A member of the RNA family "DUF3800-IX RNA" from Alloscardovia macacae, 73 nucleotides long. NCBI's taxonomy places the organism under Bacteria, Bacillati, Actinomycetota, Bifidobacteriaceae, Alloscardovia. The family's RNA type in Rfam is small RNA.
RNA sequence: AGUCCAUUCUCGAACAGUCACCCGCCGGUGCGCGUGCCGUCUCACGAAGAGACGGCUAGAGAAUGGACUUUUC
Numbered sequence: 001a002g003u004c005c006a007u008u009c010u011c012g013a014a015c016a017g018u019c020a021c022c023c024g025c026c027g028g029u030g031c032g033c034g035u036g037c038c039g040u041c042u043c044a045c046g047a048a049g050a051g052a053c054g055g056c057u058a059g060a061g062a063a064u065g066g067a068c069u070u071u072u073c
Base pairs, nucleotide, nucleotide: 001069002068003067004066005065006064007063008062009061010060011059017033018032019030020029021028022027036056037055038054039053040052041051042050043049